Annotation
A member of the RNA family "Leucine operon leader" from Ewingella americana, 147 nucleotides long. At least 6 amino acid operons are known to be regulated by attenuation. In each a leader sequence of 150-200 bp is found upstream of the first gene in the operon. This leader sequence can assume two different secondary structures known as the terminator and the anti-terminator structure. In each case the leader also codes for very short peptide sequence that is rich in the end product amino acid of the operon. The base pairs follow the family's consensus structure, which is taken from published work. Taxonomically the source falls in Ewingella americana (Bacteria, Pseudomonadati, Enterobacterales, Yersiniaceae). Rfam links the family to the GO term leucine biosynthetic process. The family's RNA type in Rfam is cis-regulatory leader. On this family, see Kolter and Yanofsky, Annu Rev Genet 1982: "Attenuation in amino acid biosynthetic operons".
RNA sequence: GAGAAGCUGAAACCCAUGUUCAUUACUACUCGUCUACUAGGCCUACUACUUAACGCAGAAAUCUUGCGCGGUAUGCCAGUGGGCGAAAAUCAGAACUGAUUUCAACUUCCACAGACACUAAACCCGCGCCGAUGCGCGGGUUUUUUU
Numbered sequence: 001g002a003g004a005a006g007c008u009g010a011a012a013c014c015c016a017u018g019u020u021c022a023u024u025a026c027u028a029c030u031c032g033u034c035u036a037c038u039a040g041g042c043c044u045a046c047u048a049c050u051u052a053a054c055g056c057a058g059a060a061a062u063c064u065u066g067c068g069c070g071g072u073a074u075g076c077c078a079g080u081g082g083g084c085g086a087a088a089a090u091c092a093g094a095a096c097u098g099a100u101u102u103c104a105a106c107u108u109c110c111a112c113a114g115a116c117a118c119u120a121a122a123c124c125c126g127c128g129c130c131g132a133u134g135c136g137c138g139g140g141u142u143u144u145u146u147u
Base pairs, nucleotide, nucleotide: 004108006106008104009103010102012100014098018096019095020094021093030086031085032084033083034082035081036080037079038078047073048072049071050070054068055067056066057065120143121142122141123140124139125138126137127136128135129134